[Rfam]
RNA sequence: GACAUCCUUGUCUUGGGGAGCAUAGUGCGCAGUGAUCGUAAAGUGAGGGCACUGAUGCUGACACCCCGCAGUUAAAACUGUUUCCCGCGCCCGACUUCCGUCAGGAAGUUCGAGCGCAAUUUUUGGAAGG
Numbered sequence: 001g002a003c004a005u006c007c008u009u010g011u012c013u014u015g016g017g018g019a020g021c022a023u024a025g026u027g028c029g030c031a032g033u034g035a036u037c038g039u040a041a042a043g044u045g046a047g048g049g050c051a052c053u054g055a056u057g058c059u060g061a062c063a064c065c066c067c068g069c070a071g072u073u074a075a076a077a078c079u080g081u082u083u084c085c086c087g088c089g090c091c092c093g094a095c096u097u098c099c100g101u102c103a104g105g106a107a108g109u110u111c112g113a114g115c116g117c118a119a120u121u122u123u124u125g126g127a128a129g130g
Stems, first nucleotide, its partner, number of pairs: 005019005020058004024053005030047001037043001087117004091112001094109006
A member of the RNA family "U4atac minor spliceosomal RNA" from Eumeta japonica, 130 nucleotides long. Rfam describes the family as follows. U4atac is an essential component of the minor U12-type spliceosome complex which is required for removal of the rarer class of eukaryotic introns (AT-AC, U12-type). Clan: U4 clan. Taxonomically the source falls in Eumeta (Eukaryota, Altocrustacea, Pterygota, Eumetabola). Rfam links the family to the GO terms spliceosomal tri-snRNP complex assembly, pre-mRNA 5'-splice site binding and U4atac snRNP.